[Rfam]
RNA sequence: UUAUAUUAAGGGAAUGAAGUUCUCCCUAGGAAUACCUAAACCGCAAAAAUGCUGAUGACUUCUAUGAUAAA
Numbered sequence: 001u002u003a004u005a006u007u008a009a010g011g012g013a014a015u016g017a018a019g020u021u022c023u024c025c026c027u028a029g030g031a032a033u034a035c036c037u038a039a040a041c042c043g044c045a046a047a048a049a050u051g052c053u054g055a056u057g058a059c060u061u062c063u064a065u066g067a068u069a070a071a
Stems, first nucleotide, its partner, number of pairs: 010026004016062006043052003